[Rfam]
RNA: Plastid-psbA-1 3UTR RNA
Organism: Paeonia ostii
RNA sequence: GCCGAAGCUCCAUCUACAAAUGGAUAAAAUGUAGGUCUUAGUCUUAAUUUAAUGUGUAUGAGUUAAAAUGAAAGGAGCAAUACCAACCCCUUGAUAGAACAAGGAAUUUGGUAUUGCUCCUUU
Numbered sequence: 001g002c003c004g005a006a007g008c009u010c011c012a013u014c015u016a017c018a019a020a021u022g023g024a025u026a027a028a029a030u031g032u033a034g035g036u037c038u039u040a041g042u043c044u045u046a047a048u049u050u051a052a053u054g055u056g057u058a059u060g061a062g063u064u065a066a067a068a069u070g071a072a073a074g075g076a077g078c079a080a081u082a083c084c085a086a087c088c089c090c091u092u093g094a095u096a097g098a099a100c101a102a103g104g105a106a107u108u109u110g111g112u113a114u115u116g117c118u119c120c121u122u123u
Base pairs, nucleotide, nucleotide: 009024010023011022012021013020071123072122073121074120075119076118077117078116079115080114081113082112083111085108086107089104090103091102092101